A member of the RNA family "mir-160 microRNA precursor family" from Dendrobium nobile, 87 nucleotides long.
Nucleotides: 087
Stems, first nucleotide, its partner, number of pairs: 002086005008080007016072002019069006027061003
Number, partner (000 for none) and nucleotide at each position: 001000u002086u003085g004084u005083g006082c007000c008080u009079g010078g011077c012076u013075c014074c015000c016072u017071g018000u019069a020068u021067g022066c023065c024064a025000c026000a027061c028060a029059u030000a031000u032000g033000g034000u035000u036000c037000a038000u039000u040000c041000u042000c043000u044000u045000c046000a047000a048000g049000a050000u051000u052000a053000g054000c055000u056000a057000u058000u059029g060028u061027g062000g063000g064024u065023g066022g067021c068020g069019u070000c071017c072016a073000u074014g075013g076012a077011g078010u079009c080008a081000a082006g083005c084004a085003u086002g087000c
The base pairs follow the family's consensus structure, which was predicted with PFOLD.